[Rfam]
Shown here is an 82-nucleotide sequence, a member of the family "ctRNA". Pairs were carried over by alignment from the consensus structure, which was predicted with ILM. It scores 56 bits against the family's covariance model. From the family's description: Rolling circle replication plasmids contain a number of mechanisms to maintain a low copy number.
RNA sequence: UAUCAAUACGCUCCUUUGCGUGUUUUAUUUGUGGCAUAGAGAAAUUCCUCGUCAAAGUUUUUUCUCUAUGUUUUUAUUAUAU
Numbered sequence: 001u002a003u004c005a006a007u008a009c010g011c012u013c014c015u016u017u018g019c020g021u022g023u024u025u026u027a028u029u030u031g032u033g034g035c036a037u038a039g040a041g042a043a044a045u046u047c048c049u050c051g052u053c054a055a056a057g058u059u060u061u062u063u064c065u066c067u068a069u070g071u072u073u074u075u076a077u078u079a080u081a082u
Stems, first nucleotide, its partner, number of pairs: 005026002008023004013018001033072012